[Rfam]
Shown here is a 144-nucleotide sequence from Loigolactobacillus bifermentans, a member of the family "Ribosomal protein L10 leader". Taxonomically the source falls in Loigolactobacillus bifermentans (Bacteria, Bacilli, Lactobacillaceae, Loigolactobacillus). Rfam classes the family as a cis-regulatory leader. Pairs were carried over by alignment from the consensus structure, which was predicted with CMfinder. From the family's description: This family is a putative r-protein leader autoregulatory structure found in B. subtilis and other low-GC Gram-positive bacteria. It is located in the 5' untranslated regions of mRNAs encoding ribosomal proteins L10 and L12 (rplJ-rplL). A Rho-independent transcription terminator structure that is probably involved in regulation is included at the 3' end.
RNA sequence: CACUCGGUUAUAUUUCUACCUAAGACUCAGGUGGCUUUGCCUUAAUUGUUUACUUUGUAAACUGCCCGCCGAGGAGAAAGUUUGUACGAUUAGCAAACUCUCAGCGGCGUUGUGUCUUUGACACAACGUUUUUUGAUUAGGAGA
Numbered sequence: 001c002a003c004u005c006g007g008u009u010a011u012a013u014u015u016c017u018a019c020c021u022a023a024g025a026c027u028c029a030g031g032u033g034g035c036u037u038u039g040c041c042u043u044a045a046u047u048g049u050u051u052a053c054u055u056u057g058u059a060a061a062c063u064g065c066c067c068g069c070c071g072a073g074g075a076g077a078a079a080g081u082u083u084g085u086a087c088g089a090u091u092a093g094c095a096a097a098c099u100c101u102c103a104g105c106g107g108c109g110u111u112g113u114g115u116c117u118u119u120g121a122c123a124c125a126a127c128g129u130u131u132u133u134u135g136a137u138u139a140g141g142a143g144a
Stems, first nucleotide, its partner, number of pairs: 028068001030066003033041003107129010